The record is a 121-nucleotide RNA from Glycine max, which matches "MIR1520 microRNA precursor family" in Rfam. It scores 80 bits against the family's covariance model. Clan: MIR1520 microRNA precursor clan. Lineage of the source: Eukaryota > Embryophyta > Fabales > Papilionoideae > Glycine subgen. Soja.
RNA sequence: AUGUGUCACGACGAUGACUGUCACGUGUUGCGUUCUAAUUGGACGUUGACAACAACAAUACAUUUUCAUCGUUCAUAGAGUCAACAUCCAAUCAGAAUGUGACACAUGACAAUCAAUAUUC
Number, nucleotide and partner (000 for none) at each position: 001a000002u000003g000004u000005g000006u000007c000008a000009c000010g000011a000012c000013g000014a000015u000016g000017a000018c000019u000020g110021u109022c108023a107024c000025g105026u104027g000028u000029u101030g100031c099032g000033u097034u096035c095036u094037a000038a092039u091040u090041g089042g088043a087044c000045g000046u000047u000048g000049a000050c000051a000052a000053c000054a000055a000056c000057a000058a000059u000060a000061c000062a000063u000064u000065u000066u000067c000068a000069u000070c000071g000072u000073u000074c000075a000076u000077a000078g000079a000080g000081u000082c000083a000084a000085c000086a000087u043088c042089c041090a040091a039092u038093c000094a036095g035096a034097a033098u000099g031100u030101g029102a000103c000104a026105c025106a000107u023108g022109a021110c020111a000112a000113u000114c000115a000116a000117u000118a000119u000120u000121c000